[Rfam]
RNA: Bacterial large subunit ribosomal RNA, nucleotides 9 to 563
Organism: Natranaerovirga pectinivora
Nucleotides: 555
Stems, first nucleotide, its partner, number of pairs: 007550010022535001023500002027472002029469007036461002038171002046107003049062003068101007077089003112121003122140007142168009175206001176204005186193002216223002226457001227254005237245002257454004265284007291395002294390004306383004314375004319368003325341004330337001344348001350362003402426007433448005487494002510521004
Number, partner (000 for none) and nucleotide at each position: 001000u002000a003000g004000u005000a006000a007550g008549a009548g010547c011546g012545u013544a014543g015542g016541g017000u018000g019000g020000a021000u022535g023500c024499c025000u026000u027472g028471g029469c030468a031467c032466u033465g034464a035463g036461a037460g038171c039170c040000g041000a042000u043000g044000a045000a046107g047106g048105a049062c050061g051060u052000g053000a054000u055000a056000a057000g058000c059000u060051g061050c062049g063000a064000a065000a066000a067000g068101c069100u070099u071098c072097g073096g074095g075000g076000a077089g078088g079087c080000g081000c082000a083000a084000a085000u086000a087079g088078c089077c090000a091000u092000u093000g094000a095074u096073c097072c098071g099070g100069a101068g102000a103000u104000a105048u106047c107046c108000g109000a110000a111000u112121g113120g114119g115000g116000a117000a118000a119114c120113c121112c122140g123139g124138c125137u126136g127135a128134g129000a130000a131000a132000a133000g134128c135127u136126c137125a138124g139123u140122c141000a142168c143167u144166a145165u146164u147163a148162a149161g150160u151000g152000a153000a154000u155000a156000c157000a158000u159000a160150g161149c162148u163147u164146a165145a166144u167143a168142g169000a170039g171038g172000g173000a174000a175206c176204u177203c178202g179201g180200g181000g182000a183000a184000c185000u186193g187192a188000a189000a190000c191000a192187u193186c194000u195000a196000a197000g198000u199000a200180c201179c202178c203177g204176a205000a206175g207000g208000a209000g210000g211000a212000g213000a214000a215000a216223g217222a218000a219000a220000c221000a222217u223216c224000g225000a226457u227254u228253u229252c230251c231250u232000a233000a234000g235000u236000a237245g238244u239000g240000g241000c242000g243000a244238g245237c246000g247000a248000a249000a250231g251230g252229g253228a254227a255000a256000g257454a258453g259452c260451c261000c262000a263000a264000a265284c266283c267282u268281a269280u270279a271278a272000a273000c274000u275000u276000g277000u278271u279270u280269a281268u282267a283266g284265g285000g286000g287000u288000u289000g290000a291395g292394g293000a294390c295389u296388g297387c298000a299000u300000a301000a302000g303000g304000u305000a306383u307382u308381c309380u310000a311000g312000a313000a314375g315374g316373u317372u318000a319368g320367u321366c322000g323000a324000a325341u326340g327339g328338u329000u330337u331000u332000g333000g334000g335000a336000a337330a338328g339327c340326c341325a342000a343000c344348c345000a346000a347000a348344g349000a350362g351361g352360g353000u354000g355000a356000a357000a358000g359000u360352c361351c362350u363000g364000u365000a366321g367320a368319c369000g370000a371000a372317a373316a374315c375314u376000a377000g378000a379000c380309a381308g382307a383306g384000c385000u386000g387297g388296c389295a390294g391000g392000a393000u394292c395291c396000a397000g398000a399000g400000u401000a402426c403425c404424a405423c406422g407421g408420g409000a410000c411000a412000c413000g414000a415000g416000a417000a418000a419000c420408c421407c422406u423405g424404u425403g426402g427000g428000a429000a430000a431000c432000a433448g434447g435446g436445g437444g438000g439000a440000c441000c442000a443000c444437c445436c446435c447434c448433c449000a450000a451260g452259g453258c454257u455000a456000a457226a458000u459000a460037c461036u462000c463035c464034u465033c466032a467031g468030u469029g470000a471028c472027c473000g474000a475000u476000a477000g478000c479000g480000c481000a482000u483000a484000g485000u486000a487494c488493u489000g490000u491000g492000a493488a494487g495000g496000a497000a498000a499024g500023g501000u502000g503000a504000a505000a506000a507000g508000a509000a510521c511520c512519c513518c514000g515000g516000g517000a518513g519512g520511g521510g522000a523000g524000u525000g526000a527000a528000a529000a530000a531000g532000a533000a534000c535022c536000u537000g538000a539000a540000a541016c542015c543014c544013u545012a546011u547010g548009u549008u550007u551000a552000c553000a554000a555000g